[Rfam]
RNA: XIST RNA A repeat
Organism: Erinaceus europaeus
RNA sequence: UUGCCCAACGGGGCUGUGGAUACCUGCCUUAU
Numbered sequence: 001u002u003g004c005c006c007a008a009c010g011g012g013g014c015u016g017u018g019g020a021u022a023c024c025u026g027c028c029u030u031a032u
Stems, first nucleotide, its partner, number of pairs: 003014004017026003